[Rfam]
RNA: Fluoride riboswitch aptamer (crcB RNA motif)
Organism: Pedococcus cremeus
RNA sequence: CUCCACGGCGGCGAUGGAUCCCGCCAGGACGACAUGUCCGAACCGCCCGUCACAUGGGCUGAUGGUUCCUGGCCACGG
Numbered sequence: 001c002u003c004c005a006c007g008g009c010g011g012c013g014a015u016g017g018a019u020c021c022c023g024c025c026a027g028g029a030c031g032a033c034a035u036g037u038c039c040g041a042a043c044c045g046c047c048c049g050u051c052a053c054a055u056g057g058g059c060u061g062a063u064g065g066u067u068c069c070u071g072g073c074c075a076c077g078g
Stems, first nucleotide, its partner, number of pairs: 010025004016069003020065002045059004